A member of the RNA family "RAGATH-28 RNA", 85 nucleotides long. The family's consensus secondary structure is taken from published work.

[Rfam]
RNA sequence: GUGUGGUUGAUUCGUCCCACACGCCAACGAGGGAAAAAUAAAACACAAAACACAGCCGAAAAUAUCGGGUGUGAAUGGCGGUAGC
Numbered sequence: 001g002u003g004u005g006g007u008u009g010a011u012u013c014g015u016c017c018c019a020c021a022c023g024c025c026a027a028c029g030a031g032g033g034a035a036a037a038a039u040a041a042a043a044c045a046c047a048a049a050a051c052a053c054a055g056c057c058g059a060a061a062a063u064a065u066c067g068g069g070u071g072u073g074a075a076u077g078g079c080g081g082u083a084g085c
Stems, first nucleotide, its partner, number of pairs: 001022006051073004056068003